[Rfam]
RNA sequence: UGGGCGGGUUCCGAAAAGCCAGGAAAAGAGUAGGAA
Numbered sequence: 001u002g003g004g005c006g007g008g009u010u011c012c013g014a015a016a017a018g019c020c021a022g023g024a025a026a027a028g029a030g031u032a033g034g035a036a
Stems, first nucleotide, its partner, number of pairs: 003020003010035003